[Rfam]
RNA sequence: GGAGAGGUGGCUGAGUGGUCGAAAGCACCGCUUUGCUAAAGCGGCGUAGAGGUAAAACUCUACCGCGGGUUCGAAUCCCGCCCUCUCCG
Number, nucleotide and partner (000 for none) at each position: 001g088002g087003a086004g085005a084006g083007g082008u000009g000010g026011c025012u024013g000014a000015g000016u000017g000018g000019u000020c000021g000022a000023a000024a012025g011026c010027a000028c044029c043030g042031c041032u040033u000034u000035g000036c000037u000038a000039a000040a032041g031042c030043g029044g028045c000046g000047u000048a000049g000050a000051g000052g000053u000054a000055a000056a000057a000058c000059u000060c000061u000062a000063c000064c000065g081066c080067g079068g078069g077070u000071u000072c000073g000074a000075a000076u000077c069078c068079c067080g066081c065082c007083c006084u005085c004086u003087c002088c001089g000
Annotation:
This 89-nucleotide RNA sequence from a Gemmataceae bacterium belongs to the Rfam family "tRNA". The base pairs follow the family's consensus structure, which is taken from published work.